[Rfam]
RNA: Small nucleolar RNA ZL8
RNA sequence: CCAGAGUAGUAGUGAUGACCUGGUUAGACUAGAGUCUCAGCAUUUCUCUGAGGAUCUUUGAAAUCACCUGAUCCACUUAA
Numbered sequence: 001c002c003a004g005a006g007u008a009g010u011a012g013u014g015a016u017g018a019c020c021u022g023g024u025u026a027g028a029c030u031a032g033a034g035u036c037u038c039a040g041c042a043u044u045u046c047u048c049u050g051a052g053g054a055u056c057u058u059u060g061a062a063a064u065c066a067c068c069u070g071a072u073c074c075a076c077u078u079a080a
Stems, first nucleotide, its partner, number of pairs: 004078004009073001018072001020070001022068003026064001031057003035053004040046001